[Rfam]
RNA sequence: UCCAGGCAAGAACAUUGUCUGGGCCACACGUCUUCCAAUCUGAACGCAUUCAUUAUUUAGCGUUCGGGUGCAAUACAGCCGCAACACUGAGUAGCGUGAUAGCGUGAAAUCGUGAAGCGGCAGUGGUUUAUUUCGGUUGGAAGACUACCCGGU
Numbered sequence: 001u002c003c004a005g006g007c008a009a010g011a012a013c014a015u016u017g018u019c020u021g022g023g024c025c026a027c028a029c030g031u032c033u034u035c036c037a038a039u040c041u042g043a044a045c046g047c048a049u050u051c052a053u054u055a056u057u058u059a060g061c062g063u064u065c066g067g068g069u070g071c072a073a074u075a076c077a078g079c080c081g082c083a084a085c086a087c088u089g090a091g092u093a094g095c096g097u098g099a100u101a102g103c104g105u106g107a108a109a110u111c112g113u114g115a116a117g118c119g120g121c122a123g124u125g126g127u128u129u130a131u132u133u134c135g136g137u138u139g140g141a142a143g144a145c146u147a148c149c150c151g152g153u
Base pairs, nucleotide, nucleotide: 001023002022003021004020005019006018007017008016009015030145031144032143033142034141035140036139037138038137039136043133048128050126051125078121079120080119081118082117085114086113087112089110094105095104096103097102

The family of this 153-nucleotide sequence is "RT-16 RNA".
The sequence is in the family's curated seed alignment.
Rfam classes the family as a small RNA.